[Rfam]
RNA sequence: ACCGGUCCUCGGUAGUGGCCCUCGGCGCGUCGCCGAAUCCGAAACGGCGACGACCGGGUGCUUCGAUCGAAGACCGGA
Numbered sequence: 001a002c003c004g005g006u007c008c009u010c011g012g013u014a015g016u017g018g019c020c021c022u023c024g025g026c027g028c029g030u031c032g033c034c035g036a037a038u039c040c041g042a043a044a045c046g047g048c049g050a051c052g053a054c055c056g057g058g059u060g061c062u063u064c065g066a067u068c069g070a071a072g073a074c075c076g077g078a
Base pairs, nucleotide, nucleotide: 002077003076004075005074006073007072009070010069011068012067013066017062018061019060021058022057023056024055025054028052029051030050031049032048033047034046035045
Rfam assigns this 78-nucleotide RNA sequence from Actinocatenispora sera to the family "Actino-pnp RNA". Taxonomically the source falls in Actinocatenispora (Bacteria, Actinomycetota, Actinomycetes, Micromonosporaceae). The family's RNA type in Rfam is cis-regulatory element.